[Rfam]
RNA sequence: UGUCGAACUAUGUACUUGCGCACAUUAUUUAGGUGGACUCCGGAAAGUCACACAAGAC
Numbered sequence: 001u002g003u004c005g006a007a008c009u010a011u012g013u014a015c016u017u018g019c020g021c022a023c024a025u026u027a028u029u030u031a032g033g034u035g036g037a038c039u040c041c042g043g044a045a046a047g048u049c050a051c052a053c054a055a056g057a058c
Stems, first nucleotide, its partner, number of pairs: 020038001023035004